[Rfam]
RNA sequence: UUGCACUCUGCUUUCGAAGGCUAUGUCAAUCAAGUGACAUAGUCUUUUAGCAAUAAGUGCAUAAAGGGAAAGCUGUUAAAUCAGCAAGCGGCCAGACAACCGUUGGGAUAGAUCCACAGGUGAAGCAGAUUUUUCUCUGCCCUCAGCUACUAAAUCUAUCUUACAAAU
Numbered sequence: 001u002u003g004c005a006c007u008c009u010g011c012u013u014u015c016g017a018a019g020g021c022u023a024u025g026u027c028a029a030u031c032a033a034g035u036g037a038c039a040u041a042g043u044c045u046u047u048u049a050g051c052a053a054u055a056a057g058u059g060c061a062u063a064a065a066g067g068g069a070a071a072g073c074u075g076u077u078a079a080a081u082c083a084g085c086a087a088g089c090g091g092c093c094a095g096a097c098a099a100c101c102g103u104u105g106g107g108a109u110a111g112a113u114c115c116a117c118a119g120g121u122g123a124a125g126c127a128g129a130u131u132u133u134u135c136u137c138u139g140c141c142c143u144c145a146g147c148u149a150c151u152a153a154a155u156c157u158a159u160c161u162u163a164c165a166a167a168u
Stems, first nucleotide, its partner, number of pairs: 002061005009052003014049001016047013105162008122143001125140004
Overview: small nucleolar RNA snoR143: a 168-nucleotide RNA sequence from Eutrema salsugineum. NCBI's taxonomy places the organism under Eukaryota, Streptophyta, Embryophyta, Mesangiospermae, Eutrema. The literature on the family includes a 2009 paper in Nucleic Acids Res by Chen and Wu, "Mining small RNA sequencing data: a new approach to identify small nucleolar RNAs in Arabidopsis". A search with the family's covariance model found it, with a score of 126 bits.